[Rfam]
RNase MRP: a 231-nucleotide RNA from Trichuris suis. Rfam's curators write: RNase MRP is an enzymatically active ribonucleoprotein with two distinct roles in eukaryotes. NCBI's taxonomy places the organism under Eukaryota, Metazoa, Protostomia, Trichinellida, Trichuris. The family's RNA type in Rfam is ribozyme. The match comes from Rfam's covariance-model search (72 bits). The family's consensus secondary structure is taken from published work.
RNA sequence: UAGUGCAUCCGUGGAAGCUGUCGGAGGCAAAUCGAGUUCACUGUAACUCAACACAUCCUCUGAGGAAAGUCCCUGGACCUUUGGCCUGAAAGAGGCGUCUCGUUGAGAGAUACUCUGUUACUCGCGUCGUACUCAAAGCGAUGAUCUCAUGGCGAGCGUACGACGGGUGCAGACUUGUCGCUGUACCGAGUAAUGCUUGGUUAACUGAACAGGGCUUACACCGGAGACACA
Numbered sequence: 001u002a003g004u005g006c007a008u009c010c011g012u013g014g015a016a017g018c019u020g021u022c023g024g025a026g027g028c029a030a031a032u033c034g035a036g037u038u039c040a041c042u043g044u045a046a047c048u049c050a051a052c053a054c055a056u057c058c059u060c061u062g063a064g065g066a067a068a069g070u071c072c073c074u075g076g077a078c079c080u081u082u083g084g085c086c087u088g089a090a091a092g093a094g095g096c097g098u099c100u101c102g103u104u105g106a107g108a109g110a111u112a113c114u115c116u117g118u119u120a121c122u123c124g125c126g127u128c129g130u131a132c133u134c135a136a137a138g139c140g141a142u143g144a145u146c147u148c149a150u151g152g153c154g155a156g157c158g159u160a161c162g163a164c165g166g167g168u169g170c171a172g173a174c175u176u177g178u179c180g181c182u183g184u185a186c187c188g189a190g191u192a193a194u195g196c197u198u199g200g201u202u203a204a205c206u207g208a209a210c211a212g213g214g215c216u217u218a219c220a221c222c223g224g225a226g227a228c229a230c231a
Base pairs, nucleotide, nucleotide: 003230004229005228008225009224010223011222014198016197017196018195021063022062023061024060025059026058027057034049035048036047037046038045067217068216069215071214072213073212074211084096085095086094087093097111098110099109100108101107113172114171120168121167122166123165124164129161130160132156133155134154141150142149143148